[Rfam]
RNA: Makes More Granules Regulator RNA (mmgR)
Organism: Lichenibacterium minor
RNA sequence: GCUGCAUGCCCUUCUUGGGCGUUUCCUCCCUAGACUUGGGCCGCCCUUCGGGGUGGCCUUUUUUCUUGGGACCG
Numbered sequence: 001g002c003u004g005c006a007u008g009c010c011c012u013u014c015u016u017g018g019g020c021g022u023u024u025c026c027u028c029c030c031u032a033g034a035c036u037u038g039g040g041c042c043g044c045c046c047u048u049c050g051g052g053g054u055g056g057c058c059u060u061u062u063u064u065c066u067u068g069g070g071a072c073c074g
Stems, first nucleotide, its partner, number of pairs: 008020004038059009